[Rfam]
RNA sequence: AGCUGUCUGAAGGUAGUGAGUUAUCUCAUUUGUUUAUUCAGUCAGUUACAGAUCCAACUCCUUGUUCUACUCUUUCCCCGUUUCUCAGUACUACACUUGACUAAUUUUAA
Numbered sequence: 001a002g003c004u005g006u007c008u009g010a011a012g013g014u015a016g017u018g019a020g021u022u023a024u025c026u027c028a029u030u031u032g033u034u035u036a037u038u039c040a041g042u043c044a045g046u047u048a049c050a051g052a053u054c055c056a057a058c059u060c061c062u063u064g065u066u067c068u069a070c071u072c073u074u075u076c077c078c079c080g081u082u083u084c085u086c087a088g089u090a091c092u093a094c095a096c097u098u099g100a101c102u103a104a105u106u107u108u109a110a
Base pairs, nucleotide, nucleotide: 001106002105004103005101006100007099009098010097013094014093015089017087018086019085020084041071044068045067

Rfam assigns this 110-nucleotide sequence from Pan troglodytes to the family "Y RNA". It is annotated as a non-coding RNA gene. The literature on the family includes a 2000 paper in Nucleic Acids Res by Teunissen et al., "Conserved features of Y RNAs: a comparison of experimentally derived secondary structures". A search with the family's covariance model found it, with a score of 47 bits. Rfam describes the family as follows. Y RNAs are components of the Ro ribonucleoprotein particle (Ro RNP), in association with Ro60 and La proteins.